[Rfam]
RNA sequence: CCCACCCCGUCAGGAGAGAGUUCUCUGCAAGAGAGCCGCCGAAGGCGCAGGGCCCCGCUACGUGGGCCUGAACGCUCAGGCAAAAGGACUGACAAGCGCUU
Numbered sequence: 001c002c003c004a005c006c007c008c009g010u011c012a013g014g015a016g017a018g019a020g021u022u023c024u025c026u027g028c029a030a031g032a033g034a035g036c037c038g039c040c041g042a043a044g045g046c047g048c049a050g051g052g053c054c055c056c057g058c059u060a061c062g063u064g065g066g067c068c069u070g071a072a073c074g075c076u077c078a079g080g081c082a083a084a085a086g087g088a089c090u091g092a093c094a095a096g097c098g099c100u101u
Stems, first nucleotide, its partner, number of pairs: 006096001009093005020036004038081003041077002045075003051068005
A member of the RNA family "Glycine riboswitch aptamer" from Rhodoferax sp. OV413, 101 nucleotides long. Its family is annotated with glycine biosynthetic process in the Gene Ontology. This family represents the bacterial glycine riboswitch.